The family of this 58-nucleotide RNA sequence is "S4-Clostridia ribosomal protein leader". Rfam's curators put it in the seed alignment. By type it is a cis-regulatory leader. The literature on the family includes a 2020 paper in BMC Microbiol by Eckert and Weinberg, "Discovery of 20 novel ribosomal leader candidates in bacteria and archaea".

RNA sequence: GAAAGGUCGUUCUUUCGCCAAAGACGACUGGGUGUUUUACCGAGGCACCCCAAUUAGG
Numbered sequence: 001g002a003a004a005g006g007u008c009g010u011u012c013u014u015u016c017g018c019c020a021a022a023g024a025c026g027a028c029u030g031g032g033u034g035u036u037u038u039a040c041c042g043a044g045g046c047a048c049c050c051c052a053a054u055u056a057g058g
Stems, first nucleotide, its partner, number of pairs: 005029007030050009